[Rfam]
RNA sequence: AACCAGUGAUGAAAACGAUUCUGCCAUAUGAAACCUGAUUUCACCAUUACCGUUCCACUUUUUUCUGAGGUU
Number, nucleotide and partner (000 for none) at each position: 001a072002a071003c070004c069005a000006g000007u000008g000009a000010u000011g000012a000013a000014a000015a000016c000017g000018a000019u000020u000021c000022u000023g000024c000025c000026a000027u000028a000029u000030g000031a000032a000033a000034c000035c000036u000037g000038a000039u000040u000041u000042c000043a000044c000045c000046a000047u000048u000049a000050c000051c000052g000053u000054u000055c000056c000057a000058c000059u000060u000061u000062u000063u000064u000065c000066u000067g000068a000069g004070g003071u002072u001

The family of this 72-nucleotide sequence from Aquarana catesbeiana is "Small nucleolar RNA SNORD47". The family's RNA type in Rfam is C/D-box small nucleolar RNA. The family's consensus secondary structure was predicted with ILM. The source organism's lineage runs through Eukaryota, Bilateria, Euteleostomi, Dipnotetrapodomorpha and Aquarana. Rfam links the family to the GO terms RNA processing and nucleolus. Rfam 15.1 lists 755 matches to the family in 638 species. A reference for the family is Galardi et al. (2002), "Purified box C/D snoRNPs are able to reproduce site-specific 2'-O-methylation of target RNA in vitro", Mol Cell Biol.